[Rfam]
RNA sequence: CCUGGGUGAGGUAGUAGGUUGUAUAGUAGGGAAUGAAAAUUCGAAGAUACGAAGUCCACUGUACAGCUUGCUAACUUUCCCGG
Numbered sequence: 001c002c003u004g005g006g007u008g009a010g011g012u013a014g015u016a017g018g019u020u021g022u023a024u025a026g027u028a029g030g031g032a033a034u035g036a037a038a039a040u041u042c043g044a045a046g047a048u049a050c051g052a053a054g055u056c057c058a059c060u061g062u063a064c065a066g067c068u069u070g071c072u073a074a075c076u077u078u079c080c081c082g083g
Stems, first nucleotide, its partner, number of pairs: 001083002004080003008077003012073016034043002048053001
Annotation
Rfam assigns this 83-nucleotide RNA from Neodiprion lecontei to the family "let-7 microRNA precursor family". For this family Rfam cites "Cryo-EM Structure of Human Dicer and Its Complexes with a Pre-miRNA Substrate" (Liu et al., Cell, 2018). The source organism's lineage runs through Eukaryota, Altocrustacea, Hymenoptera, Tenthredinoidea and Neodiprion. About the family: This family represents the microRNAs (miRNA) let-7 and mir-98. let-7 was identified from a study of developmental timing in C. elegans, and was later shown to be part of a much larger class of non-coding RNAs termed miRNAs. The family is grouped with related families in Rfam's "let-7 microRNA precursor clan".